The record is an 83-nucleotide sequence from Caenorhabditis elegans, which matches "mir-266 microRNA precursor family" in Rfam. A search with the family's covariance model found it, with a score of 87 bits. The source organism's lineage runs through Eukaryota, Bilateria, Nematoda, Rhabditina and Caenorhabditis.
[Rfam]
RNA sequence: GGGCAAAAGUUGGGCAAGACUUUGGCAAAACUUGGAUUCAGGCUGCACCAGAGUUUAACCCAGGUUUAACCUAACUCUUGCUG
Numbered sequence: 001g002g003g004c005a006a007a008a009g010u011u012g013g014g015c016a017a018g019a020c021u022u023u024g025g026c027a028a029a030a031c032u033u034g035g036a037u038u039c040a041g042g043c044u045g046c047a048c049c050a051g052a053g054u055u056u057a058a059c060c061c062a063g064g065u066u067u068a069a070c071c072u073a074a075c076u077c078u079u080g081c082u083g
Base pairs, nucleotide, nucleotide: 002082003081004080005079006078008076009075010074011073012072013071014070017067018066019065020064021063024060025059028056029055030054031053032052033051